[Rfam]
RNA sequence: GAGGUGUGCUCAGAGCAGGGGACCGAAGAAAUGGCUCCUCUGUGUACGACACACCCAAUGGGAAUCUGUGUUUUCAGGGUGACAAGGGGCCAGAAACUGGUGGCCUACUACAAACAGGAGGAAAGCCUACACGU
Dot-bracket structure: ..((((((....(.(((((((.((........))..))))))).)....))))))..............(((......((.....((.(((((...)))))..))........))........)))........
The family of this 134-nucleotide sequence from Canis lupus is "Small nucleolar RNA SNORA11". About the family: U107 (SNORA11) is a member of the H/ACA class of snoRNAs that guide the sites of modification of uridines to pseudouridines. This snoRNA was identified by RT-PCR from blood cells and its expression confirmed by Northern blot analysis. Taxonomically the source falls in Canis lupus (Eukaryota, Bilateria, Deuterostomia, Mammalia). The family's consensus secondary structure was predicted with RNAalifold. It scores 74 bits against the family's covariance model. A reference for the family is Gu et al. (2005), "A novel experimental approach for systematic identification of box H/ACA snoRNAs from eukaryotes", Nucleic Acids Res. Rfam links the family to the GO terms RNA processing and nucleolus.